[Rfam]
RNA sequence: AGGUGAUGAAAGUUAUAGCCCCGCUGGAAAAGGGUGAUAACAGGAGCCUUACUGAAGGGUUUGACAUUCAGGCCACAAUCCAGCUAGAUAGUUUACUAUCGAAAGAAAAUGUCAUUA
Numbered sequence: 001a002g003g004u005g006a007u008g009a010a011a012g013u014u015a016u017a018g019c020c021c022c023g024c025u026g027g028a029a030a031a032g033g034g035u036g037a038u039a040a041c042a043g044g045a046g047c048c049u050u051a052c053u054g055a056a057g058g059g060u061u062u063g064a065c066a067u068u069c070a071g072g073c074c075a076c077a078a079u080c081c082a083g084c085u086a087g088a089u090a091g092u093u094u095a096c097u098a099u100c101g102a103a104a105g106a107a108a109a110u111g112u113c114a115u116u117a
Stems, first nucleotide, its partner, number of pairs: 001049004012041005018035004024083004064112003087100004
This 117-nucleotide RNA sequence from Butyrivibrio fibrisolvens belongs to the Rfam family "drum RNA".
It is annotated as a small RNA.
It is one of the family's seed sequences.
The source organism's lineage runs through Bacteria, Bacillati, Bacillota, Lachnospiraceae and Butyrivibrio fibrisolvens.
Firmicutes, Bacteroidetes (1 example), Proteobacteria (2 examples), Spirochaetes (2 examples).
Pairs were carried over by alignment from the consensus structure, which is taken from published work.